The record is a 123-nucleotide sequence from Pseudorhizobium pelagicum, which matches "Alphaproteobacterial ar14" in Rfam.

RNA sequence: UGUCAUCGAAGCGACGCACUCCUCCUCCCAGCGUCGUGAGAUGAGAUCGGCAAUCUCCUCCUCCUCCCAAUUGCCGAUCAAGUUUAAAGCCCGACGCACCUCCUCCCGCGUCGGGCUUUUUCC
Numbered sequence: 001u002g003u004c005a006u007c008g009a010a011g012c013g014a015c016g017c018a019c020u021c022c023u024c025c026u027c028c029c030a031g032c033g034u035c036g037u038g039a040g041a042u043g044a045g046a047u048c049g050g051c052a053a054u055c056u057c058c059u060c061c062u063c064c065u066c067c068c069a070a071u072u073g074c075c076g077a078u079c080a081a082g083u084u085u086a087a088a089g090c091c092c093g094a095c096g097c098a099c100c101u102c103c104u105c106c107c108g109c110g111u112c113g114g115g116c117u118u119u120u121u122c123c
Base pairs, nucleotide, nucleotide: 007040011037012036013035014034015033016032017031045079046078047077048076049075050074051073052072053071054070087118088117089116090115091114092113093112094111095110096109097108
Rfam's curators write: Smr14C2 was renamed NfeR1 (Nodule Formation Efficiency RNA) highly expressed in salt stress and during the symbiotic interaction on legume roots.
The base pairs follow the family's consensus structure.
Gene Ontology term of the family: biological process involved in symbiotic interaction.
NCBI's taxonomy places the organism under Bacteria, Pseudomonadati, Pseudomonadota, Alphaproteobacteria, Pseudorhizobium.
The family's RNA type in Rfam is small RNA.